[Rfam]
Glycine riboswitch aptamer: a 108-nucleotide RNA sequence from Ramlibacter tataouinensis. Its family is annotated with glycine biosynthetic process in the Gene Ontology. The match comes from Rfam's covariance-model search (62 bits).
RNA sequence: GUUCACCUUGCUGGAGAGAGGCGCGCGCCCGGAUGAGCUCGCGUCCACCGAAGGAGCAAACCCUUGUUACGGGUGAAUCUCUCAGGUAAAGCGGACAGCAGGGGCCGC
Numbered sequence: 001g002u003u004c005a006c007c008u009u010g011c012u013g014g015a016g017a018g019a020g021g022c023g024c025g026c027g028c029c030c031g032g033a034u035g036a037g038c039u040c041g042c043g044u045c046c047a048c049c050g051a052a053g054g055a056g057c058a059a060a061c062c063c064u065u066g067u068u069a070c071g072g073g074u075g076a077a078u079c080u081c082u083c084a085g086g087u088a089a090a091g092c093g094g095a096c097a098g099c100a101g102g103g104g105c106c107g108c
Stems, first nucleotide, its partner, number of pairs: 006103008020045006047087003050083002054081003060074004